About this RNA: A member of the RNA family "Glycine riboswitch aptamer" from Novosphingobium malaysiense, 121 nucleotides long. It scores 45 bits against the family's covariance model. The source organism's lineage runs through Bacteria, Pseudomonadati, Pseudomonadota, Sphingomonadaceae and Novosphingobium.
RNA sequence: UAGCGCAACUCUGGAAAGUGUCGCCGCCUUUCGGGCUGUGGCCGCCGACGGUGUAACCCUGUUUUGCCCAACGCAAGGCAUCCGGGGGAAGCUCUCAGGUUUCCGUGACAGAGGGGGCACC
Numbered sequence: 001u002a003g004c005g006c007a008a009c010u011c012u013g014g015a016a017a018g019u020g021u022c023g024c025c026g027c028c029u030u031u032c033g034g035g036c037u038g039u040g041g042c043c044g045c046c047g048a049c050g051g052u053g054u055a056a057c058c059c060u061g062u063u064u065u066g067c068c069c070a071a072c073g074c075a076a077g078g079c080a081u082c083c084g085g086g087g088g089a090a091g092c093u094c095u096c097a098g099g100u101u102u103c104c105g106u107g108a109c110a111g112a113g114g115g116g117g118c119a120c121c
Base pairs, nucleotide, nucleotide: 006116009113010112011111012110013109020042021041022040023039044100045099046098047096048095051094053092057087058086059085060084061083